[Rfam]
SAM-I/IV (S-adenosyl methionine) riboswitch aptamer: a 118-nucleotide sequence. Its family is annotated with S-adenosylmethionine metabolic process and regulation of gene expression in the Gene Ontology. The literature on the family includes a 2008 paper in RNA by Weinberg et al., "The aptamer core of SAM-IV riboswitches mimics the ligand-binding site of SAM-I riboswitches". The family has 417 seed sequences and 567 matches in Rfam 15.1.
RNA sequence: UAAUAUCAUCAGGAGUGGUUUCGUAGUUGAAACCCGCCAACCGUGCCCAGAUAAAUCAGGGAAGCGGUGGUUAGAGCCUUAAACGCUAGAUGUGCCUAGGAAAAUAGGAAACACAAAG
Numbered sequence: 001u002a003a004u005a006u007c008a009u010c011a012g013g014a015g016u017g018g019u020u021u022c023g024u025a026g027u028u029g030a031a032a033c034c035c036g037c038c039a040a041c042c043g044u045g046c047c048c049a050g051a052u053a054a055a056u057c058a059g060g061g062a063a064g065c066g067g068u069g070g071u072u073a074g075a076g077c078c079u080u081a082a083a084c085g086c087u088a089g090a091u092g093u094g095c096c097u098a099g100g101a102a103a104a105u106a107g108g109a110a111a112c113a114c115a116a117a118g
Stems, first nucleotide, its partner, number of pairs: 007092004015035001017034007036071003041067003044062001046060001095108004